Shown here is a 61-nucleotide RNA from Pseudoduganella lurida, a member of the family "Betaproteobacteria toxic small RNA". Taxonomically the source falls in Pseudoduganella (Bacteria, Pseudomonadati, Betaproteobacteria, Burkholderiales).
RNA sequence: UGUCUCCUCCAACUCUCCUAGAGAAUUGGAUUCAGCCGGCUCCCUGAGCCGGCUUUUUUUU
Numbered sequence: 001u002g003u004c005u006c007c008u009c010c011a012a013c014u015c016u017c018c019u020a021g022a023g024a025a026u027u028g029g030a031u032u033c034a035g036c037c038g039g040c041u042c043c044c045u046g047a048g049c050c051g052g053c054u055u056u057u058u059u060u061u
Stems, first nucleotide, its partner, number of pairs: 008030005014024002034054008

Rfam describes the family as follows. Overexpression in amino aid rich medium attenuates growth, suggesting role in repressing amino acid intake and metabolism.